A member of the RNA family "SAM riboswitch aptamer (S box leader)" from Aneurinibacillus soli, 110 nucleotides long. A search with the family's covariance model found it, with a score of 94 bits. Pairs were carried over by alignment from the consensus structure, which is taken from published work.

[Rfam]
RNA sequence: CUCUUAUCUAGAGAGGUGGAGGGACUGGCCCGAUGAAGCCCGGCAACCCCGCAGUAUAUUGCGGAUAAGGUGCCAAUUCCAGCAGGACAUUCGGUUCUGGAAGAUAAGAG
Number, nucleotide and partner (000 for none) at each position: 001c110002u109003c108004u107005u106006a105007u104008c103009u000010a000011g000012a000013g041014a000015g040016g039017u038018g000019g000020a000021g031022g030023g029024a000025c082026u081027g080028g079029c023030c022031c021032g000033a000034u000035g000036a000037a000038g017039c016040c015041c013042g074043g073044c072045a071046a000047c070048c069049c064050c063051g062052c061053a000054g000055u000056a000057u000058a000059u000060u000061g052062c051063g050064g049065a000066u000067a000068a000069g048070g047071u045072g044073c043074c042075a000076a000077u000078u102079c028080c027081a026082g025083c099084a098085g097086g096087a095088c094089a000090u000091u000092c000093g000094g088095u087096u086097c085098u084099g083100g000101a000102a078103g008104a007105u006106a005107a004108g003109a002110g001